RNA sequence: GGUCAUGAGCCCCAGCGUCAAGCCCUGGCUUGCUGGGCGGCAACCCUCUCUCGCAGUGGGGUGCUCCAGGUGAGGACCGGGCCGGUCGCAAUACCGCGAUCGGCAAGUGCGACAG
Numbered sequence: 001g002g003u004c005a006u007g008a009g010c011c012c013c014a015g016c017g018u019c020a021a022g023c024c025c026u027g028g029c030u031u032g033c034u035g036g037g038c039g040g041c042a043a044c045c046c047u048c049u050c051u052c053g054c055a056g057u058g059g060g061g062u063g064c065u066c067c068a069g070g071u072g073a074g075g076a077c078c079g080g081g082c083c084g085g086u087c088g089c090a091a092u093a094c095c096g097c098g099a100u101c102g103g104c105a106a107g108u109g110c111g112a113c114a115g
Base pairs, nucleotide, nucleotide: 001078002077003076004075009038011037012036013035014034015033016032021030022029039065040064041063044061045060046059048056049055081104082103083102084101085100086099087098088097089096
Background
The record is a 115-nucleotide sequence from Ornithinicoccus hortensis, which matches "SAM (S-adenosyl methionine) riboswitch aptamer" in Rfam. A search with the family's covariance model found it, with a score of 108 bits. SAM-IV is a mRNA element that regulates gene expression via direct sensing of S-adenosylmethionine (SAM or AdoMet). SAM-IV riboswitches share conserved nucleotide positions with the previously described SAM-I riboswitches sequence analysis and molecular recognition experiments suggest that SAM-I and SAM-IV riboswitches share similar ligand binding sites, but have different scaffolds. Pairs were carried over by alignment from the consensus structure, which is taken from published work. Lineage of the source: Bacteria > Bacillati > Actinomycetota > Micrococcales > Ornithinicoccus.